The family of this 88-nucleotide RNA sequence from Paucilactobacillus vaccinostercus is "RNA anti-toxin A". Lineage of the source: Bacteria > Bacillota > Bacilli > Lactobacillaceae > Paucilactobacillus vaccinostercus. Rfam 15.1 lists 190 matches to the family in 120 species. The base pairs follow the family's consensus structure, which was predicted with RNAalifold. A search with the family's covariance model found it, with a score of 85 bits. The literature on the family includes a 2010 paper in Nucleic Acids Res by Fozo et al., "Abundance of type I toxin-antitoxin systems in bacteria: searches for new candidates and discovery of novel families".

RNA sequence: UAAUGUAGACAGAAAAAGGAAGCCCCGCGUGAACAGGGCUUCCCAUGUAGAGCCGUUUAAGACGGUGGCAUUAAUUAACGACUUAAAA
Number, nucleotide and partner (000 for none) at each position: 001u000002a000003a000004u000005g000006u000007a000008g000009a000010c000011a000012g000013a000014a000015a000016a000017a000018g000019g000020a000021a000022g000023c000024c037025c036026c000027g034028c000029g000030u000031g000032a000033a000034c027035a000036g025037g024038g000039c000040u000041u000042c000043c000044c000045a000046u000047g000048u000049a000050g000051a000052g066053c065054c064055g063056u062057u061058u000059a000060a000061g057062a056063c055064g054065g053066u052067g000068g000069c000070a000071u000072u000073a000074a000075u000076u000077a000078a000079c000080g000081a000082c000083u000084u000085a000086a000087a000088a000